This 73-nucleotide sequence from Streptomyces sp. FH025 belongs to the Rfam family "Guanidine-II riboswitch aptamer (mini-ykkC)". Rfam links the family to the GO term regulation of gene expression. It scores 32 bits against the family's covariance model. Pairs were carried over by alignment from the consensus structure, which is taken from published work. Rfam's curators write: Simpler in structure and has fewer highly conserved nucleotide positions than the ykkC-yxkD leader. Despite this each of its two stem-loop structures directly bind free guanidine. Therefore, mini-ykkC RNA motif represents a distinct class of guanidine-sensing RNAs. Its crystal structure was also determined.
Nucleotides: 073
Base pairs, nucleotide, nucleotide: 001048002047003046004045005044006043007042008041062073063072064071065070
Number, partner (000 for none) and nucleotide at each position: 001048g002047c003046g004045c005044c006043g007042g008041g009000a010000c011000g012000a013000g014000u015000c016000c017000c018000c019000g020000u021000g022000g023000g024000c025000g026000g027000g028000g029000a030000u031000u032000g033000g034000u035000u036000c037000g038000g039000c040000g041008c042007c043006c044005g045004g046003c047002g048001c049000c050000c051000u052000c053000u054000c055000u056000c057000a058000a059000u060000c061000g062073g063072g064071g065070g066000a067000c068000g069000g070065c071064c072063c073062c